[Rfam]
RNA sequence: GGGUCGGGUAGGGUGGGGAGUCUCGCCAGCUCCUGUAACCCCGUGGCGUAAUGGGGCACCAGUAACCCUUAUGCCAUGAUACCUACCUCUCUAGAUCCCAGCUGAACGAUGAGCACCGCCCGGUGGGGCGAGACGGACGCGAAUCUCCUCUCUGGAGGGAGAGGGGAUAUCGCGUCAACCGGAGGAAUCGGCCAGGUCCGGAAGGGAGCAACCGUGUCCGGCCGUCCGCGUUCACCGGUCACCGGUGUGAGAAAGGCUGGGGGUAAAUCUAGAGAGGAAAGGAUCAUGGCAUAAGGGGGCCGACCC
Number, nucleotide and partner (000 for none) at each position: 001g306002g305003g304004u303005c302006g301007g300008g000009u298010a000011g000012g060013g059014u058015g057016g034017g033018g032019a031020g030021u029022c000023u000024c000025g000026c000027c000028a000029g021030c020031u019032c018033c017034u016035g000036u000037a000038a000039c056040c055041c054042c053043g052044u000045g000046g000047c000048g000049u000050a000051a000052u043053g042054g041055g040056g039057c015058a014059c013060c012061a000062g000063u000064a000065a000066c297067c296068c295069u294070u293071a292072u291073g000074c289075c288076a287077u286078g285079a284080u282081a000082c000083c000084u279085a000086c277087c276088u275089c274090u273091c272092u271093a270094g269095a000096u262097c261098c260099c259100a258101g257102c256103u255104g000105a000106a000107c251108g000109a000110u249111g000112a000113g248114c247115a246116c245117c244118g243119c000120c238121c237122g236123g235124u234125g233126g232127g231128g229129c228130g227131a000132g226133a225134c224135g223136g176137a175138c174139g173140c172141g171142a170143a168144u167145c166146u165147c164148c163149u162150c161151u160152c159153u158154g000155g000156a000157g000158g153159g152160a151161g150162a149163g148164g147165g146166g145167a144168u143169a000170u142171c141172g140173c139174g138175u137176c136177a000178a000179c221180c220181g219182g218183a000184g217185g000186a000187a000188u000189c214190g213191g212192c000193c000194a000195g000196g000197u206198c205199c204200g000201g000202a000203a000204g199205g198206g197207a000208g000209c000210a000211a000212c191213c190214g189215u000216g000217u184218c182219c181220g180221g179222c000223c135224g134225u133226c132227c130228g129229c128230g000231u127232u126233c125234a124235c123236c122237g121238g120239u000240c000241a000242c000243c118244g117245g116246u115247g114248u113249g110250a000251g107252a000253a000254a000255g103256g102257c101258u100259g099260g098261g097262g096263g000264u000265a000266a000267a000268u000269c094270u093271a092272g091273a090274g089275a088276g087277g086278a000279a084280a000281g000282g080283a000284u079285c078286a077287u076288g075289g074290c000291a072292u071293a070294a069295g068296g067297g066298g009299g000300c007301c006302g005303a004304c003305c002306c001
Rfam assigns this 306-nucleotide RNA sequence from Sulfurisphaera tokodaii to the family "Archaeal signal recognition particle RNA". NCBI's taxonomy places the organism under Archaea, Thermoproteati, Sulfolobales, Sulfurisphaera, Sulfurisphaera tokodaii. On this family, see Wild et al., Curr Opin Struct Biol 2002: "Towards the structure of the mammalian signal recognition particle". Gene Ontology terms of the family: SRP-dependent cotranslational protein targeting to membrane, signal sequence recognition and signal recognition particle, plasma membrane targeting.